[Rfam]
RNA sequence: CAGUGGGUGAGAGACCCACCCGGCUAAAUCGCUCCGGCCGGAAGCACUCGGGGCAGUCAUGUAGGUAACGAAAUGGCUGAAGCCCCCGAGUUAAAGGGUCGCUUUAGGCGGCCUAGCGAGUGUGCAGGCUUUAACGUGA
Dot-bracket structure: ...................(((((............))))).......(((((((((((....(....)....))))))....)))))........((((((.....))))))..(.(...........).).......
RNA: Group II catalytic intron D1-D4-4